[Rfam]
RNA: U12 minor spliceosomal RNA
Organism: Apostasia shenzhenica
RNA sequence: UUGCCUUAAACUAAUGAGUAAGGAAAACAAAGCGGGUGGUGGGAACUGCCCGCCGCGCUGAUAAAUAUUUUGCGCAUGAAUUUUUGGAGGGGGAAUAGGCUUGCCGAGUGUUGACGCUGCUUACUUUGCAGAACUCGCUUGAGCGGGCCUCCCAC
Numbered sequence: 001u002u003g004c005c006u007u008a009a010a011c012u013a014a015u016g017a018g019u020a021a022g023g024a025a026a027a028c029a030a031a032g033c034g035g036g037u038g039g040u041g042g043g044a045a046c047u048g049c050c051c052g053c054c055g056c057g058c059u060g061a062u063a064a065a066u067a068u069u070u071u072g073c074g075c076a077u078g079a080a081u082u083u084u085u086g087g088a089g090g091g092g093g094a095a096u097a098g099g100c101u102u103g104c105c106g107a108g109u110g111u112u113g114a115c116g117c118u119g120c121u122u123a124c125u126u127u128g129c130a131g132a133a134c135u136c137g138c139u140u141g142a143g144c145g146g147g148c149c150u151c152c153c154a155c
Base pairs, nucleotide, nucleotide: 004023005022006021007020008019032053033052034051035050036049037048038047039046055075056074057073058072090155092153093152097150098149099148100147101146102145103144105141106140108138109137110136117131118130119129120128